[Rfam]
RNA: UnaL2 LINE 3' element
RNA sequence: UGCACGCAUGACUGUAAGUUGCUUUGGAUAAAAGCAUCUACUAAAUGUCUUAUA
Numbered sequence: 001u002g003c004a005c006g007c008a009u010g011a012c013u014g015u016a017a018g019u020u021g022c023u024u025u026g027g028a029u030a031a032a033a034g035c036a037u038c039u040a041c042u043a044a045a046u047g048u049c050u051u052a053u054a
Stems, first nucleotide, its partner, number of pairs: 013043001014041003020036006